[Rfam]
RNA sequence: UAAUGUGAUGAUGAUUAAACAAUACUUUCGUUCUACUGAAGCUCAGCUUCUGAAGAAAAACUAUUGGAGACCUGAACUGAACAUUG
Numbered sequence: 001u002a003a004u005g006u007g008a009u010g011a012u013g014a015u016u017a018a019a020c021a022a023u024a025c026u027u028u029c030g031u032u033c034u035a036c037u038g039a040a041g042c043u044c045a046g047c048u049u050c051u052g053a054a055g056a057a058a059a060a061c062u063a064u065u066g067g068a069g070a071c072c073u074g075a076a077c078u079g080a081a082c083a084u085u086g
Stems, first nucleotide, its partner, number of pairs: 003084004